Molybdenum/Tungsten riboswitch aptamer (Moco RNA motif): a 135-nucleotide sequence from Caldicellulosiruptor saccharolyticus.
It is one of the family's seed sequences.
RNA sequence: UUUUGAAAAUCUUUCCGAGCCAUUGCAACCUAAAAAGAGGGGUUUUUCCCUCUUCAUGGUGCUUUGGCCGAUAGGGUGCAGGUUUGGGAAACCACUGCGCCUCCCGCUUUGGAAAGGAAAGAUUUAAAGGAUACU
Numbered sequence: 001u002u003u004u005g006a007a008a009a010u011c012u013u014u015c016c017g018a019g020c021c022a023u024u025g026c027a028a029c030c031u032a033a034a035a036a037g038a039g040g041g042g043u044u045u046u047u048c049c050c051u052c053u054u055c056a057u058g059g060u061g062c063u064u065u066g067g068c069c070g071a072u073a074g075g076g077u078g079c080a081g082g083u084u085u086g087g088g089a090a091a092c093c094a095c096u097g098c099g100c101c102u103c104c105c106g107c108u109u110u111g112g113a114a115a116g117g118a119a120a121g122a123u124u125u126a127a128a129g130g131a132u133a134c135u
Base pairs, nucleotide, nucleotide: 003129004128011121012120013119014118015117016116019068020067021066022065025062026061028060029059030058035054036053037052038051039050040049041048042047074102075101076100077099078098079097080096081095085094086093087092103112104111